[Rfam]
RNA sequence: GUCGGUCCUCGGUAGUGGCCGCCGGAUGACGUCCUCCGGCCGCUUCGAUCGAAGGCCGCG
Numbered sequence: 001g002u003c004g005g006u007c008c009u010c011g012g013u014a015g016u017g018g019c020c021g022c023c024g025g026a027u028g029a030c031g032u033c034c035u036c037c038g039g040c041c042g043c044u045u046c047g048a049u050c051g052a053a054g055g056c057c058g059c060g
Stems, first nucleotide, its partner, number of pairs: 003058005009052005017044003021040006028033001
This 60-nucleotide sequence from Hoyosella subflava belongs to the Rfam family "Actino-pnp RNA". The organism belongs to Hoyosella subflava, within Bacteria.